The family of this 65-nucleotide RNA from Saimiri boliviensis is "Small nucleolar RNA SNORD73". A reference for the family is Rebane et al. (1998), "A novel snoRNA (U73) is encoded within the introns of the human and mouse ribosomal protein S3a genes", Gene.

RNA sequence: AAUAAGUGAUGAAAAAAGUUUCGGUCCCAUAUGAUGGCCAGUGAUAACUUAUGUUUUCUGAUGUU
Numbered sequence: 001a002a003u004a005a006g007u008g009a010u011g012a013a014a015a016a017a018g019u020u021u022c023g024g025u026c027c028c029a030u031a032u033g034a035u036g037g038c039c040a041g042u043g044a045u046a047a048c049u050u051a052u053g054u055u056u057u058c059u060g061a062u063g064u065u
Stems, first nucleotide, its partner, number of pairs: 001065004
Dot-bracket structure: ((((.........................................................))))
Annotation
NCBI's taxonomy places the organism under Eukaryota, Deuterostomia, Vertebrata, Amniota, Saimiri boliviensis. Pairs were carried over by alignment from the consensus structure, which was predicted with PFOLD. Rfam classes the family as a C/D-box small nucleolar RNA.